[Rfam]
RNA sequence: GUGUUUUUCAUGGUAUUAGAUUAAAGGUUAUAAAAGAUGGGUUGUCGGGAUGACAACCUUUUUUUGUG
Numbered sequence: 001g002u003g004u005u006u007u008u009c010a011u012g013g014u015a016u017u018a019g020a021u022u023a024a025a026g027g028u029u030a031u032a033a034a035a036g037a038u039g040g041g042u043u044g045u046c047g048g049g050a051u052g053a054c055a056a057c058c059u060u061u062u063u064u065u066g067u068g
Stems, first nucleotide, its partner, number of pairs: 040058007